[Rfam]
RNA sequence: ACAACACGCCUUUUACAACGGAUCGUCUGGCACGUACCUGCCAGUGAAAGGGACCUCAU
Numbered sequence: 001a002c003a004a005c006a007c008g009c010c011u012u013u014u015a016c017a018a019c020g021g022a023u024c025g026u027c028u029g030g031c032a033c034g035u036a037c038c039u040g041c042c043a044g045u046g047a048a049a050g051g052g053a054c055c056u057c058a059u
Stems, first nucleotide, its partner, number of pairs: 009051007027044006
RNA: msiK RNA
Organism: Glycomyces buryatensis